FMN riboswitch aptamer (RFN element): a 139-nucleotide sequence from Glutamicibacter sp. BW77.
A search with the family's covariance model found it, with a score of 100 bits.
The RFN element is a highly conserved domain that is found frequently in the 5'-untranslated regions of prokaryotic mRNAs that encode for flavin mononucleotide (FMN) biosynthesis and transport proteins. This element is a metabolite-dependent riboswitch that directly binds FMN in the absence of proteins. In Bacillus subtilis, the riboswitch most likely controls gene expression by causing premature transcription termination within the 5' untranslated region of the ribDEAHT operon and precluding access to the ribosome-binding site of ypaA mRNA.The FMN riboswitch structure, reported in present an FMN-bound six-stem junction, adopts a butterfly-like scaffold, stapled together by opposingly directed but nearly identically folded peripheral domains.

[Rfam]
RNA sequence: UACGUGCUCCGGGGUCGGUGUAAGUCCGAACCGGCGGUGAUAGUCCGCGACCCGCUUCCAAGGCCACAAGCUAAGGUAAGCGGUUGAGCCGGUGAAAUUCCGGUACCGACAGUUAAAGUCUGGAUGGGAGAAGCACGGG
Numbered sequence: 001u002a003c004g005u006g007c008u009c010c011g012g013g014g015u016c017g018g019u020g021u022a023a024g025u026c027c028g029a030a031c032c033g034g035c036g037g038u039g040a041u042a043g044u045c046c047g048c049g050a051c052c053c054g055c056u057u058c059c060a061a062g063g064c065c066a067c068a069a070g071c072u073a074a075g076g077u078a079a080g081c082g083g084u085u086g087a088g089c090c091g092g093u094g095a096a097a098u099u100c101c102g103g104u105a106c107c108g109a110c111a112g113u114u115a116a117a118g119u120c121u122g123g124a125u126g127g128g129a130g131a132a133g134c135a136c137g138g139g
Stems, first nucleotide, its partner, number of pairs: 003137006010130001016028003030119002032108002034048004043106002052083006088104005110122003